Rfam assigns this 171-nucleotide RNA sequence from Rossellomorea aquimaris to the family "glmS glucosamine-6-phosphate activated ribozyme aptamer". The family's RNA type in Rfam is riboswitch. NCBI's taxonomy places the organism under Bacteria, Bacillati, Bacilli, Bacillaceae, Rossellomorea. The literature on the family includes a 2006 paper in Biochemistry by Hampel and Tinsley, "Evidence for preorganization of the glmS ribozyme ligand binding pocket".

Nucleotides: 171
Base pairs, nucleotide, nucleotide: 020046021045022044023043024042025041026040027039029037055087056086057085058084059083065076066075067074068073088111089110090109091108092107093106116161117160118159120158121157122156130147131146132145133144134143135142136141
Number, partner (000 for none) and nucleotide at each position: 001000a002000a003000c004000g005000u006000a007000a008000a009000u010000a011000a012000a013000g014000c015000g016000c017000c018000a019000g020046g021045a022044c023043u024042a025041a026040a027039c028000g029037g030000a031000a032000g033000a034000g035000a036000g037029c038000c039027g040026u041025u042024u043023a044022g045021u046020u047000g048000a049000c050000g051000a052000g053000g054000u055087g056086g057085a058084g059083g060000u061000u062000c063000a064000a065076u066075c067074g068073a069000g070000u071000g072000u073068u074067c075066g076065g077000c078000g079000g080000a081000u082000g083059c084058c085057u086056c087055c088111c089110g090109g091108u092107u093106c094000u095000u096000u097000a098000a099000a100000g101000u102000u103000a104000c105000g106093g107092a108091g109090c110089c111088g112000u113000a114000a115000g116161a117160u118159u119000c120158u121157u122156u123000c124000u125000u126000a127000a128000a129000a130147c131146a132145u133144c134143g135142a136141g137000g138000c139000a140000a141136c142135u143134u144133g145132g146131u147130g148000c149000a150000c151000a152000a153000a154000g155000g156122g157121a158120a159118g160117a161116u162000a163000a164000g165000c166000a167000g168000u169000g170000a171000c